A member of the RNA family "Mammalian CPEB3 ribozyme" from Alligator sinensis, 75 nucleotides long.
[Rfam]
RNA sequence: ACAUAAAUUCAAGACUACAGCAGACGCGUUAACAGUGCAGCCCUUUCAGAUUCCAAUAAAUCUGCAAGUUCUAUU
Numbered sequence: 001a002c003a004u005a006a007a008u009u010c011a012a013g014a015c016u017a018c019a020g021c022a023g024a025c026g027c028g029u030u031a032a033c034a035g036u037g038c039a040g041c042c043c044u045u046u047c048a049g050a051u052u053c054c055a056a057u058a059a060a061u062c063u064g065c066a067a068g069u070u071c072u073a074u075u
Stems, first nucleotide, its partner, number of pairs: 011044001013042001015040002019075002022072003026038003047064006